[Rfam]
RNA sequence: AGGAGUCUGCCACUGGAGUCGGCACGCCUGCUUUUCAGCUGUGAUCCCAGAAGAGGAAGCGGCUGCCUCUGAGGCCUCAGGCUCAG
Numbered sequence: 001a002g003g004a005g006u007c008u009g010c011c012a013c014u015g016g017a018g019u020c021g022g023c024a025c026g027c028c029u030g031c032u033u034u035u036c037a038g039c040u041g042u043g044a045u046c047c048c049a050g051a052a053g054a055g056g057a058a059g060c061g062g063c064u065g066c067c068u069c070u071g072a073g074g075c076c077u078c079a080g081g082c083u084c085a086g
Stems, first nucleotide, its partner, number of pairs: 003084006009075003014071005020065004029061006035054002039050003
RNA: mir-646 microRNA precursor family
Organism: Pongo pygmaeus